Rfam assigns this 66-nucleotide sequence from Menidia menidia to the family "Selenocysteine insertion sequence 1".
Its family is annotated with selenocysteine incorporation in the Gene Ontology.

[Rfam]
RNA sequence: GUGUGAUAAUGAAAACCUGACUCUAAACUCACUAACGAGAGGAGCAGGUUUGAUGCCCAAACUCAC
Numbered sequence: 001g002u003g004u005g006a007u008a009a010u011g012a013a014a015a016c017c018u019g020a021c022u023c024u025a026a027a028c029u030c031a032c033u034a035a036c037g038a039g040a041g042g043a044g045c046a047g048g049u050u051u052g053a054u055g056c057c058c059a060a061a062c063u064c065a066c
Stems, first nucleotide, its partner, number of pairs: 001066003005062001014050006022042002028039003
Lineage of the source: Eukaryota > Chordata > Actinopteri > Percomorphaceae > Menidia. It scores 35 bits against the family's covariance model. Pairs were carried over by alignment from the consensus structure, which is taken from published work.